[Rfam]
RNA: Bacterial large subunit ribosomal RNA, nucleotides 1350 to 1661
Organism: Brasilonema sennae
RNA sequence: GAAAAUAUUGGUGAGAAUCCAAUACCCCGAAACCCCAAGGGUUCCAGAGCCAGGUUCGUCCACUCUGGGUUAGUCGGGACCUAAGGCGAGGCGGAAACGCGUAGUCGAUGGACACAGGGUCAACAAUCCCUGACUAUUGAGUGGGAGCAUUUGCAGUGCGCAUGAAAGUAAGCUACGCCCUGACUGGAUUGGGAGACUUCUACGGAGGUCGUGUAGUUAUGUUAGUGCCAAGAAAAGCUGUGAAUGUGAUGAAAGCUCAGUACCCGUACCCGAAACCGACACAGGUGGGGGAGUAGAGAAUACUAAGGGGAG
Numbered sequence: 001g002a003a004a005a006u007a008u009u010g011g012u013g014a015g016a017a018u019c020c021a022a023u024a025c026c027c028c029g030a031a032a033c034c035c036c037a038a039g040g041g042u043u044c045c046a047g048a049g050c051c052a053g054g055u056u057c058g059u060c061c062a063c064u065c066u067g068g069g070u071u072a073g074u075c076g077g078g079a080c081c082u083a084a085g086g087c088g089a090g091g092c093g094g095a096a097a098c099g100c101g102u103a104g105u106c107g108a109u110g111g112a113c114a115c116a117g118g119g120u121c122a123a124c125a126a127u128c129c130c131u132g133a134c135u136a137u138u139g140a141g142u143g144g145g146a147g148c149a150u151u152u153g154c155a156g157u158g159c160g161c162a163u164g165a166a167a168g169u170a171a172g173c174u175a176c177g178c179c180c181u182g183a184c185u186g187g188a189u190u191g192g193g194a195g196a197c198u199u200c201u202a203c204g205g206a207g208g209u210c211g212u213g214u215a216g217u218u219a220u221g222u223u224a225g226u227g228c229c230a231a232g233a234a235a236a237g238c239u240g241u242g243a244a245u246g247u248g249a250u251g252a253a254a255g256c257u258c259a260g261u262a263c264c265c266g267u268a269c270c271c272g273a274a275a276c277c278g279a280c281a282c283a284g285g286u287g288g289g290g291g292a293g294u295a296g297a298g299a300a301u302a303c304u305a306a307g308g309g310g311a312g
Stems, first nucleotide, its partner, number of pairs: 006024006025310004033290004039270002044068006053061002075266004080111002085106003089102001091100003115132005135262008148246002152242006160228004171218005179192002195210006276285002292304004